[Rfam]
RNA sequence: UACGAUAAAGGCAAACCUGUCGAAAGGCAGGGACGCAAAGCUAUAGGGCCUACUUGACGAAUGUCAUAGGGCAGCCUGGCCACCGAAG
Numbered sequence: 001u002a003c004g005a006u007a008a009a010g011g012c013a014a015a016c017c018u019g020u021c022g023a024a025a026g027g028c029a030g031g032g033a034c035g036c037a038a039a040g041c042u043a044u045a046g047g048g049c050c051u052a053c054u055u056g057a058c059g060a061a062u063g064u065c066a067u068a069g070g071g072c073a074g075c076c077u078g079g080c081c082a083c084c085g086a087a088g
Base pairs, nucleotide, nucleotide: 001088003085004084011036012035016031017030018029019028020027021026034074040080041079042078045077046076047075048072049071050070
A member of the RNA family "c-di-GMP-I-GGC riboswitch aptamer" from Paenibacillus flagellatus, 88 nucleotides long. The source organism's lineage runs through Bacteria, Bacillota, Bacilli, Caryophanales and Paenibacillus. It scores 68 bits against the family's covariance model. For this family Rfam cites "Bioinformatic analysis of riboswitch structures uncovers variant classes with altered ligand specificity" (Weinberg et al., Proc Natl Acad Sci U S A, 2017). Gene Ontology term of the family: cyclic-di-GMP binding. Pairs were carried over by alignment from the consensus structure, which is taken from published work.